Shown here is a 137-nucleotide RNA sequence from Octodon degus, a member of the family "Small nucleolar RNA SNORA58". NCBI's taxonomy places the organism under Eukaryota, Gnathostomata, Sarcopterygii, Glires, Octodon. Rfam links the family to the GO terms nucleolus and RNA processing. For this family Rfam cites "RNomics: an experimental approach that identifies 201 candidates for novel, small, non-messenger RNAs in mouse" (Huttenhofer et al., EMBO J, 2001). Rfam 15.1 lists 471 matches to the family in 320 species. Rfam classes the family as an H/ACA-box small nucleolar RNA. ACA52 is a member of the H/ACA class of snoRNA that guide the sites of modification of uridines to pseudouridines.

RNA sequence: AAACAUUUUCAAAAAUAUUUUUUAAAUUGUGUUGAUAGCCAGCCAAGGGGGACAGUGUAUGCAAGAGUGAUGUGGAGUUCUUGUCAGCUCUAACCAGCUGAAUCAGUGGCUGGAUGAAUCGUAGGGCUCCAACAGUC
Dot-bracket structure: ...(((.(.......(.((..((.................))..)).)........).)))............((((.(..(((.........(((((..........))))).......)))..))))).......